RNA sequence: CAUCGGCAAUCAAUAAUGCCGCGUCCGGACACAAAAGGCCCGUCCCCCGCCUGAUCCGGAUGAAGAGUGGCAGCUCCAAAUCCCCCUCUCCGGGCUGCCACUGUUUUUAAAUGGCCGCCGUGGUCCCCCCCUCCACCACGGCGGCCUGUU
Numbered sequence: 001c002a003u004c005g006g007c008a009a010u011c012a013a014u015a016a017u018g019c020c021g022c023g024u025c026c027g028g029a030c031a032c033a034a035a036a037g038g039c040c041c042g043u044c045c046c047c048c049g050c051c052u053g054a055u056c057c058g059g060a061u062g063a064a065g066a067g068u069g070g071c072a073g074c075u076c077c078a079a080a081u082c083c084c085c086c087u088c089u090c091c092g093g094g095c096u097g098c099c100a101c102u103g104u105u106u107u108u109a110a111a112u113g114g115c116c117g118c119c120g121u122g123g124u125c126c127c128c129c130c131c132u133c134c135a136c137c138a139c140g141g142c143g144g145c146c147u148g149u150u
Base pairs, nucleotide, nucleotide: 024060025059026058027057028056029055037051038050039049067101068100069099070098071097072096073095074094077093113146115144116143117142118141119140120139121138122137123136124135
RNA: Alphaproteobacterial sRNA ar7
Organism: Zhengella mangrovi